[Rfam]
RNA sequence: CGAGGUGCCCUCUCGAGCGGCGGAAUAGAAGCCUGAAGAACUCCUAUCCUUCCAGCUCAGAGGGCAUCUUCUAUCUCCGGCUCGCCACCCAUCCGACAUUCAUCGGUGGAUCCAG
Numbered sequence: 001c002g003a004g005g006u007g008c009c010c011u012c013u014c015g016a017g018c019g020g021c022g023g024a025a026u027a028g029a030a031g032c033c034u035g036a037a038g039a040a041c042u043c044c045u046a047u048c049c050u051u052c053c054a055g056c057u058c059a060g061a062g063g064g065c066a067u068c069u070u071c072u073a074u075c076u077c078c079g080g081c082u083c084g085c086c087a088c089c090c091a092u093c094c095g096a097c098a099u100u101c102a103u104c105g106g107u108g109g110a111u112c113c114a115g
Stems, first nucleotide, its partner, number of pairs: 002070011015058002018055001019053002023049001025047002028044001030042002098111005
The family of this 115-nucleotide RNA sequence from Actinoplanes sp. ATCC 53533 is "Actinobacteria sRNA Ms_IGR-7". The family's RNA type in Rfam is small RNA. It scores 66 bits against the family's covariance model. The source organism's lineage runs through Bacteria, Bacillati, Micromonosporales, Micromonosporaceae and Actinoplanes. A reference for the family is Li et al. (2013), "Identification of small RNAs in Mycobacterium smegmatis using heterologous Hfq", RNA.